Shown here is a 104-nucleotide RNA sequence from Zingiber officinale, a member of the family "Small nucleolar RNA Z157/R69/R10". The family is grouped with related families in Rfam's "SNORD52 clan". The match comes from Rfam's covariance-model search (62 bits). The literature on the family includes a 2003 paper in Nucleic Acids Res by Chen et al., "The high diversity of snoRNAs in plants: identification and comparative study of 120 snoRNA genes from Oryza sativa".
[Rfam]
RNA sequence: UAUUGAGUAAUGAUGAGGCUUUUAUGUGGACUAGAGUUUCUGAUCUCCGGCCAUUCUUAUGUGUUGGAGAUUGAAGACUAACCCUUGGCUGUCUGAUCUCAAUC
Numbered sequence: 001u002a003u004u005g006a007g008u009a010a011u012g013a014u015g016a017g018g019c020u021u022u023u024a025u026g027u028g029g030a031c032u033a034g035a036g037u038u039u040c041u042g043a044u045c046u047c048c049g050g051c052c053a054u055u056c057u058u059a060u061g062u063g064u065u066g067g068a069g070a071u072u073g074a075a076g077a078c079u080a081a082c083c084c085u086u087g088g089c090u091g092u093c094u095g096a097u098c099u100c101a102a103u104c
Stems, first nucleotide, its partner, number of pairs: 002103006037076004044070008